This 78-nucleotide sequence from Alligator mississippiensis belongs to the Rfam family "mir-17 microRNA precursor family". The organism belongs to Alligator, within Eukaryota. This family represents the microRNA (miRNA) precursor mir-17, family, which includes mir-20, mir-91, and mir-103. miRNAs are transcribed as ~70nt precursors (modelled here) and subsequently processed by the Dicer enzyme to give a ~22nt product. In this case the mature sequence comes from the 3' arm of the precursor. The extents of the hairpin precursors are not generally known and are estimated based on hairpin prediction.
RNA sequence: AUCCCAGGGCUAAAGUGCUUGCAGUGCAGGUAGCUGGCGCUGGCGCUACUGCAGUGUGGGGGCUUGCAGCUCUGGGGA
Numbered sequence: 001a002u003c004c005c006a007g008g009g010c011u012a013a014a015g016u017g018c019u020u021g022c023a024g025u026g027c028a029g030g031u032a033g034c035u036g037g038c039g040c041u042g043g044c045g046c047u048a049c050u051g052c053a054g055u056g057u058g059g060g061g062g063c064u065u066g067c068a069g070c071u072c073u074g075g076g077g078a
Stems, first nucleotide, its partner, number of pairs: 004075004009070003013065004018060006025053003029050005